Shown here is an 86-nucleotide RNA from Variimorphobacter saccharofermentans, a member of the family "c-di-GMP-I riboswitch aptamer". A search with the family's covariance model found it, with a score of 81 bits. Lineage of the source: Bacteria > Bacillati > Bacillota > Clostridia > Variimorphobacter.
RNA sequence: UAAAGCCAAGGGCAAACCCGGCUAAAGCCGGGGACGCAAAGCCGAGGGUCUACGGCGUUUUACGUUAUGAUAGCCUGGCUGCCAAA
Numbered sequence: 001u002a003a004a005g006c007c008a009a010g011g012g013c014a015a016a017c018c019c020g021g022c023u024a025a026a027g028c029c030g031g032g033g034a035c036g037c038a039a040a041g042c043c044g045a046g047g048g049u050c051u052a053c054g055g056c057g058u059u060u061u062a063c064g065u066u067a068u069g070a071u072a073g074c075c076u077g078g079c080u081g082c083c084a085a086a
Stems, first nucleotide, its partner, number of pairs: 012037002017032006040080004045076003048071003055065004